[Rfam]
RNA: Plastid-ndhJ 3UTR RNA
RNA sequence: CCAUGAACUUUGUACUGCGCACAUCACUUAGAUACGCUCUCGAAAGUCACUUAAGGG
Numbered sequence: 001c002c003a004u005g006a007a008c009u010u011u012g013u014a015c016u017g018c019g020c021a022c023a024u025c026a027c028u029u030a031g032a033u034a035c036g037c038u039c040u041c042g043a044a045a046g047u048c049a050c051u052u053a054a055g056g057g
Stems, first nucleotide, its partner, number of pairs: 019037002023033003